[Rfam]
RNA sequence: AGUGUGAUGGCCGAGUGGUCUAAGGCGUUGGAAUUAGGCUCCAAUUUACGUAAGUAAGCGCAGGUUCGAAUCCUGUUCACACUA
Dot-bracket structure: (((((((..(((...........))).(((((.......)))))...............(((((.......)))))))))))).